[Rfam]
RNA sequence: AUCUUUGUGCACGGGCAUUAUCUGCGCCAGUGAGGAGUUAUCCGAGGCCAGAUUAUUGCUAAUUGCAAACUAUACCAAUAUACGUCUUUACGACGCCUGCAAAGGUGUCGGAAAGCAAUAUUUGGAAGGGGGAAACCCUU
Numbered sequence: 001a002u003c004u005u006u007g008u009g010c011a012c013g014g015g016c017a018u019u020a021u022c023u024g025c026g027c028c029a030g031u032g033a034g035g036a037g038u039u040a041u042c043c044g045a046g047g048c049c050a051g052a053u054u055a056u057u058g059c060u061a062a063u064u065g066c067a068a069a070c071u072a073u074a075c076c077a078a079u080a081u082a083c084g085u086c087u088u089u090a091c092g093a094c095g096c097c098u099g100c101a102a103a104g105g106u107g108u109c110g111g112a113a114a115g116c117a118a119u120a121u122u123u124g125g126a127a128g129g130g131g132g133a134a135a136c137c138c139u140u
Base pairs, nucleotide, nucleotide: 020053021052022051023050024049026048027047028046034043035042036041084116086115087114088113089112091110092109093108094107095106096105097104098103129140130139131138132137

About this RNA: The family of this 140-nucleotide RNA from Funneliformis mosseae is "U4 spliceosomal RNA". U4 small nuclear RNA (U4 snRNA) is a component of the major U2-dependent spliceosome. The source organism's lineage runs through Eukaryota, Opisthokonta, Glomeromycotina, Glomeromycetes and Funneliformis.